Annotation:
Rfam assigns this 298-nucleotide RNA sequence from Muntiacus reevesi to the family "Metazoan signal recognition particle RNA". The literature on the family includes a 2002 paper in Curr Opin Struct Biol by Wild et al., "Towards the structure of the mammalian signal recognition particle". Gene Ontology terms of the family: signal recognition particle, endoplasmic reticulum targeting and SRP-dependent cotranslational protein targeting to membrane, signal sequence recognition. The source organism's lineage runs through Eukaryota, Euteleostomi, Sarcopterygii, Dipnotetrapodomorpha and Muntiacus.

RNA sequence: GCCUGGUGAGGUGGUGCACGCCUGGAGUCUCAGCUACUCCGGAGGCUGAGGCUGGAGGAUCACUUGAGCCUAGGAGUUAUCGGCUGCAGUGAGCAUCACCGAGCGGGUGUCUGCACAGAGUUGGGCAUCAAUAUGGUGAGCUCCAGGGAGCGGGGGUCCUCCAGGCUGCCUAGGCAGGGUCAACCUGCCCAGGUCGGAAAAAGAGCAGGUCAAAACUCCCGUGCUGAUCAGUAGUGGGAUCACACCUGUGAAUAGCCACUGCUCUCCAGCCUGGGCAACAUAGAGACCCCCGUCUCAA
Number, nucleotide and partner (000 for none) at each position: 001g046002c045003c044004u000005g022006g021007u020008g019009a000010g017011g000012u000013g000014g000015u000016g000017c010018a000019c008020g007021c006022c005023u000024g000025g000026a000027g000028u043029c042030u041031c000032a000033g000034c000035u000036a000037c000038u000039c000040c000041g030042g029043a028044g003045g002046c001047u000048g296049a295050g294051g293052c292053u000054g290055g289056a000057g287058g000059a000060u286061c285062a000063c283064u282065u000066g000067a000068g276069c275070c274071u273072a272073g271074g270075a000076g000077u000078u000079a000080u268081c000082g266083g265084c000085u000086g262087c261088a260089g259090u258091g257092a000093g256094c255095a000096u000097c000098a000099c250100c000101g000102a000103g249104c248105g247106g246107g245108u244109g243110u242111c238112u237113g000114c236115a235116c234117a000118g232119a000120g229121u000122u227123g000124g225125g224126c223127a222128u221129c168130a167131a000132u165133a000134u163135g162136g161137u000138g159139a000140g157141c156142u155143c154144c153145a000146g151147g000148g000149a000150g000151c146152g000153g144154g143155g142156g141157u140158c000159c138160u000161c136162c135163a134164g000165g132166c000167u130168g129169c000170c174171u000172a000173g000174g170175c000176a000177g219178g218179g216180u215181c000182a000183a000184c000185c000186u000187g210188c209189c208190c000191a000192g000193g000194u203195c000196g000197g000198a000199a000200a000201a000202a000203g194204a000205g000206c000207a000208g189209g188210u187211c000212a000213a000214a000215a180216c179217u000218c178219c177220c000221g128222u127223g126224c125225u124226g000227a122228u000229c120230a000231g000232u118233a000234g116235u115236g114237g112238g111239a000240u000241c000242a110243c109244a108245c107246c106247u105248g104249u103250g099251a000252a000253u000254a000255g094256c093257c091258a090259c089260u088261g087262c086263u000264c000265u083266c082267c000268a080269g000270c074271c073272u072273g071274g070275g069276c068277a000278a000279c000280a000281u000282a064283g063284a000285g061286a060287c057288c000289c055290c054291c000292g052293u051294c050295u049296c048297a000298a000